[Rfam]
RNA sequence: UGAAAGCGUUGUCAAGCGGUUAGACAUUCUGCGUGUCUGCACGCAGUGAGGAAUAGGCAUUUGACGACCAAGCCGGUAUGGUAAGCAGGGCGAUAGCCCGGAUUACGAAUGCUGGCGGUAGCUGCGGGAGUGCCGAAGCCACGGAGCAGCUGGCUUUCA
Numbered sequence: 001u002g003a004a005a006g007c008g009u010u011g012u013c014a015a016g017c018g019g020u021u022a023g024a025c026a027u028u029c030u031g032c033g034u035g036u037c038u039g040c041a042c043g044c045a046g047u048g049a050g051g052a053a054u055a056g057g058c059a060u061u062u063g064a065c066g067a068c069c070a071a072g073c074c075g076g077u078a079u080g081g082u083a084a085g086c087a088g089g090g091c092g093a094u095a096g097c098c099c100g101g102a103u104u105a106c107g108a109a110u111g112c113u114g115g116c117g118g119u120a121g122c123u124g125c126g127g128g129a130g131u132g133c134c135g136a137a138g139c140c141a142c143g144g145a146g147c148a149g150c151u152g153g154c155u156u157u158c159a
Stems, first nucleotide, its partner, number of pairs: 001159007008068004015061002018058001020056003025051001027049002030046001031044005072116008081106004088099004119152007130142003
The family of this 159-nucleotide RNA sequence from Clostridium sp. CAG:81 is "Clostridiales-1 RNA". Pairs were carried over by alignment from the consensus structure, which is taken from published work. The organism belongs to Clostridium, within Bacteria. A search with the family's covariance model found it, with a score of 88 bits.